[Rfam]
RNA sequence: ACCAUCCUUCUCUUGGAGCUGCACCACUGUCCAGUGAGCACGUAGUGAGGGCAGUACUGCUGAUGCCUACACAACAUGCCUGCACCAACUAGAACUUUGCUUUACCUUGGUGUGAUUUUUGGAAAA
Number, nucleotide and partner (000 for none) at each position: 001a000002c000003c000004a000005u000006c018007c000008u016009u015010c000011u000012c000013u000014u000015g009016g008017a000018g006019c000020u000021g060022c059023a058024c000025c000026a055027c054028u053029g052030u051031c050032c049033a000034g000035u000036g000037a000038g046039c045040a000041c000042g000043u000044a000045g039046u038047g000048a000049g032050g031051g030052c029053a028054g027055u026056a000057c000058u023059g022060c021061u000062g000063a000064u000065g000066c000067c000068u000069a000070c000071a000072c000073a000074a000075c000076a000077u000078g000079c000080c000081u000082g113083c112084a111085c110086c109087a108088a000089c000090u104091a103092g102093a101094a000095c099096u000097u000098u000099g095100c000101u093102u092103u091104a090105c000106c000107u000108u087109g086110g085111u084112g083113u082114g000115a000116u000117u000118u000119u000120u000121g000122g000123a000124a000125a000126a000